Shown here is an 80-nucleotide RNA from Cricetulus griseus, a member of the family "mir-345 microRNA precursor family". It is one of the family's seed sequences. Rfam links the family to the GO terms miRNA-mediated post-transcriptional gene silencing and RISC complex.
RNA sequence: UCCAGGCCUGCUGACUCCUAGUCCAGUGCUUGUGGUGGCUACUGGGCCCUGAGCUAGGGGUCUGGAGGCCUGGGUUUGAU
Numbered sequence: 001u002c003c004a005g006g007c008c009u010g011c012u013g014a015c016u017c018c019u020a021g022u023c024c025a026g027u028g029c030u031u032g033u034g035g036u037g038g039c040u041a042c043u044g045g046g047c048c049c050u051g052a053g054c055u056a057g058g059g060g061u062c063u064g065g066a067g068g069c070c071u072g073g074g075u076u077u078g079a080u
Stems, first nucleotide, its partner, number of pairs: 001074006008067002011064001013062007021054002024051003028047004